[Rfam]
RNA sequence: AUUAAUUCUCAGGGCGGGGUGGAAUUCCCCACCGGCGGUGUACUUUUUUAAGUGAGCCCGCGAGCGCUCGAUAUUUUUGAGGUCAGCAGAUCUGGUUAGAAGCCAGAGCCGACGGUUAUAGUCCGGAUGAGAGAGAAUUUAA
Numbered sequence: 001a002u003u004a005a006u007u008c009u010c011a012g013g014g015c016g017g018g019g020u021g022g023a024a025u026u027c028c029c030c031a032c033c034g035g036c037g038g039u040g041u042a043c044u045u046u047u048u049u050a051a052g053u054g055a056g057c058c059c060g061c062g063a064g065c066g067c068u069c070g071a072u073a074u075u076u077u078u079g080a081g082g083u084c085a086g087c088a089g090a091u092c093u094g095g096u097u098a099g100a101a102g103c104c105a106g107a108g109c110c111g112a113c114g115g116u117u118a119u120a121g122u123c124c125g126g127a128u129g130a131g132a133g134a135g136a137a138u139u140u141a142a
Stems, first nucleotide, its partner, number of pairs: 004139007017029003031122002033111002035061004056109002064087002091107005113125003
A member of the RNA family "FMN riboswitch aptamer (RFN element)" from Photobacterium sp. SKA34, 142 nucleotides long.
The organism belongs to Photobacterium, within Bacteria.
The family's consensus secondary structure is taken from published work.